[Rfam]
RNA sequence: CAUUAAUUAUACUGCAGAGAGGUGCUGCAGCAUAUGAAUCUGCACACUGCUGGGCAGCACCUCUCUGCAGUAUAAUUAAUGC
Numbered sequence: 001c002a003u004u005a006a007u008u009a010u011a012c013u014g015c016a017g018a019g020a021g022g023u024g025c026u027g028c029a030g031c032a033u034a035u036g037a038a039u040c041u042g043c044a045c046a047c048u049g050c051u052g053g054g055c056a057g058c059a060c061c062u063c064u065c066u067g068c069a070g071u072a073u074a075a076u077u078a079a080u081g082c
Base pairs, nucleotide, nucleotide: 003079004078005077006076007075008074009073010072011071012070015067016066017065018064019063020062021061022060023059025057026056027055028052029051030050031049032048

Rfam assigns this 82-nucleotide RNA from Leptobrachium leishanense to the family "mir-239 microRNA precursor family". For this family Rfam cites "Large-scale sequencing reveals 21U-RNAs and additional microRNAs and endogenous siRNAs in C. elegans" (Ruby et al., Cell, 2006). Lineage of the source: Eukaryota > Opisthokonta > Metazoa > Gnathostomata > Leptobrachium.